Source information: DUF805b RNA: a 37-nucleotide sequence. Its Rfam clan is "DUF805 clan". Rfam classes the family as a cis-regulatory element. Rfam's curators put it in the seed alignment.

RNA sequence: ACCGCGGAACCCGAAAAGCGGAAAAAGAGAGUAGGGA
Numbered sequence: 001a002c003c004g005c006g007g008a009a010c011c012c013g014a015a016a017a018g019c020g021g022a023a024a025a026a027g028a029g030a031g032u033a034g035g036g037a
Stems, first nucleotide, its partner, number of pairs: 002021004010036003